The family of this 99-nucleotide RNA from Roseisolibacter agri is "c-di-GMP-II-GAG riboswitch aptamer". Lineage of the source: Bacteria > Gemmatimonadota > Gemmatimonadia > Gemmatimonadaceae > Roseisolibacter.
RNA sequence: CGCAAGCUCAGAGGCGGUGAUGCGCGGAGCGACUCGUCACGAGUCGACCGGUCGCCCAUGCUCUGCGCGGAGUCAAUCGCGAGACCGGCUGAGUCGAGG
Numbered sequence: 001c002g003c004a005a006g007c008u009c010a011g012a013g014g015c016g017g018u019g020a021u022g023c024g025c026g027g028a029g030c031g032a033c034u035c036g037u038c039a040c041g042a043g044u045c046g047a048c049c050g051g052u053c054g055c056c057c058a059u060g061c062u063c064u065g066c067g068c069g070g071a072g073u074c075a076a077u078c079g080c081g082a083g084a085c086c087g088g089c090u091g092a093g094u095c096g097a098g099g
Base pairs, nucleotide, nucleotide: 001099006094007093008092009091010090011089013074014073015072022068023067024066025065026064027063028062029061050086051085052082053081054080055079
Dot-bracket structure: (....((((((.(((......((((((((....................[[[[[[.....))))))))...)))....]]]]..]]..))))))....)